[Rfam]
Notes:
This 110-nucleotide sequence from Thermoflexibacter ruber belongs to the Rfam family "SAM riboswitch aptamer (S box leader)". Rfam links the family to the GO term regulation of gene expression. A search with the family's covariance model found it, with a score of 72 bits. The SAM riboswitch is found upstream of a number of genes which code for proteins involved in methionine or cysteine biosynthesis in Gram-positive bacteria. The SAM riboswitch acts at the level of transcription termination control. The predicted structure consists of a complex stem-loop region followed by a single stem loop terminator region.
RNA sequence: GAUUUAUAAAGAAAGGGGGAGAGAUUAGGCUCACUGAACCCUUAGCAACCUACGCCAAAACGCAAGGUGCUACAUCCUAACCCAAAUUUAAGUUUAGGGAAAUAUAAAUU
Number, nucleotide and partner (000 for none) at each position: 001g110002a109003u108004u107005u106006a105007u104008a103009a000010a000011g000012a000013a043014a042015g041016g040017g039018g000019g000020a000021g032022a031023g030024a000025u000026u079027a078028g077029g076030c023031u022032c021033a000034c000035u000036g000037a000038a000039c017040c016041c015042u014043u013044a071045g070046c069047a068048a000049c067050c066051u064052a000053c062054g061055c000056c000057a000058a000059a000060a000061c054062g053063c000064a051065a000066g050067g049068u047069g046070c045071u044072a000073c000074a000075u102076c029077c028078u027079a026080a000081c099082c098083c097084a000085a095086a094087u000088u000089u000090a000091a000092g000093u000094u086095u085096a000097g083098g082099g081100a000101a000102a075103u008104a007105u006106a005107a004108a003109u002110u001